RNA sequence: CUGCACGGUGCACCCCGGGCAUCUCUGAGAGAUCCAUUGAAGAUGGAAACGCCAAUGCUCAUGCUAGACUUAGCUGCCAUUCAGUGUUGCAGUUCUGUUGUUUUACUUAAUGCUGAACUGUGUCAAUUAAAUAAAAAGCCUU
Numbered sequence: 001c002u003g004c005a006c007g008g009u010g011c012a013c014c015c016c017g018g019g020c021a022u023c024u025c026u027g028a029g030a031g032a033u034c035c036a037u038u039g040a041a042g043a044u045g046g047a048a049a050c051g052c053c054a055a056u057g058c059u060c061a062u063g064c065u066a067g068a069c070u071u072a073g074c075u076g077c078c079a080u081u082c083a084g085u086g087u088u089g090c091a092g093u094u095c096u097g098u099u100g101u102u103u104u105a106c107u108u109a110a111u112g113c114u115g116a117a118c119u120g121u122g123u124c125a126a127u128u129a130a131a132u133a134a135a136a137a138g139c140c141u142u
Stems, first nucleotide, its partner, number of pairs: 003064003007060002010058002017052001019050001022046002024043003079132003085125002088122006096112003